[Rfam]
RNA sequence: GGAACCUUUAAGUUCAGUCCUGUGAGGCUGAAAAGGGGUCGGAAUGACAAAGAAGGGCGAUGUAUGCCCAUCUUGUUUGGUGAUAAGCGCGCCAUCCCCCGCUUCACAGGCGGGGGGUUUUUUGU
Numbered sequence: 001g002g003a004a005c006c007u008u009u010a011a012g013u014u015c016a017g018u019c020c021u022g023u024g025a026g027g028c029u030g031a032a033a034a035g036g037g038g039u040c041g042g043a044a045u046g047a048c049a050a051a052g053a054a055g056g057g058c059g060a061u062g063u064a065u066g067c068c069c070a071u072c073u074u075g076u077u078u079g080g081u082g083a084u085a086a087g088c089g090c091g092c093c094a095u096c097c098c099c100c101g102c103u104u105c106a107c108a109g110g111c112g113g114g115g116g117g118u119u120u121u122u123u124g125u
Base pairs, nucleotide, nucleotide: 005036006035007034008033009032014031015030016029017028018027019026046078047077050074051073052072053071055069056068057067058066059065094118095117096116097115098114099113100112101111102110103109104108
Record summary
PyrR binding site: a 125-nucleotide RNA from Geobacillus kaustophilus. Rfam describes the family as follows. This family represents the PyrR binding site and terminator structure. Its family is annotated with pyrimidine nucleobase biosynthetic process and pyrimidine nucleobase transport in the Gene Ontology.